[Rfam]
RNA sequence: GCCCAAUUUCGCACGUGCCUGUGGUUGCGUGCCGACCGGUGGGACUUCGGACAAGAGGCCGAGGUGACGCCCAGGGCCGAAAGGCCUCAGGAGUUCGGGAGCGAUCCCGAAAAGGUCGGCAGCCGGAAAGCGAACCGGUGAACCCCGUCUCCGCGGGGGACGCGACUUGAAGCAACGACGUAGCGGGCCUUU
Numbered sequence: 001g002c003c004c005a006a007u008u009u010c011g012c013a014c015g016u017g018c019c020u021g022u023g024g025u026u027g028c029g030u031g032c033c034g035a036c037c038g039g040u041g042g043g044a045c046u047u048c049g050g051a052c053a054a055g056a057g058g059c060c061g062a063g064g065u066g067a068c069g070c071c072c073a074g075g076g077c078c079g080a081a082a083g084g085c086c087u088c089a090g091g092a093g094u095u096c097g098g099g100a101g102c103g104a105u106c107c108c109g110a111a112a113a114g115g116u117c118g119g120c121a122g123c124c125g126g127a128a129a130g131c132g133a134a135c136c137g138g139u140g141a142a143c144c145c146c147g148u149c150u151c152c153g154c155g156g157g158g159g160a161c162g163c164g165a166c167u168u169g170a171a172g173c174a175a176c177g178a179c180g181u182a183g184c185g186g187g188c189c190u191u192u
Stems, first nucleotide, its partner, number of pairs: 001188004009178003016174003023167008031120007123138004139159001143158006
RNA: Alphaproteobacterial sRNA ar45
Organism: Prosthecomicrobium pneumaticum